[Rfam]
RNA sequence: CGUUAACACCAGCAGGAGGUCCGAUAUGGGUCUUACUCAAUCAUUGAACGCCGUGUUGGUUGGGGCGGCAUUUCUUUUCGUCGGCGUGAUGUUGUUCGUCUGACGGCCGCAAAGGGUUCCGGGCUUGAUUUCCGCCCGGCAUGCCAUUCAAGAAGGGGCGCAGGAUGUUUAUCCGGCGCCCC
Numbered sequence: 001c002g003u004u005a006a007c008a009c010c011a012g013c014a015g016g017a018g019g020u021c022c023g024a025u026a027u028g029g030g031u032c033u034u035a036c037u038c039a040a041u042c043a044u045u046g047a048a049c050g051c052c053g054u055g056u057u058g059g060u061u062g063g064g065g066c067g068g069c070a071u072u073u074c075u076u077u078u079c080g081u082c083g084g085c086g087u088g089a090u091g092u093u094g095u096u097c098g099u100c101u102g103a104c105g106g107c108c109g110c111a112a113a114g115g116g117u118u119c120c121g122g123g124c125u126u127g128a129u130u131u132c133c134g135c136c137c138g139g140c141a142u143g144c145c146a147u148u149c150a151a152g153a154a155g156g157g158g159c160g161c162a163g164g165a166u167g168u169u170u171a172u173c174c175g176g177c178g179c180c181c182c
Stems, first nucleotide, its partner, number of pairs: 015052002018049001028044001030042001155182007163174004

Rhizobiales sRNA Atu_C9: a 182-nucleotide RNA from Phytoamicus setariae. Lineage of the source: Bacteria > Pseudomonadati > Pseudomonadota > Rhizobiaceae > Phytoamicus. Pairs were carried over by alignment from the consensus structure, which was predicted with WAR. A search with the family's covariance model found it, with a score of 57 bits.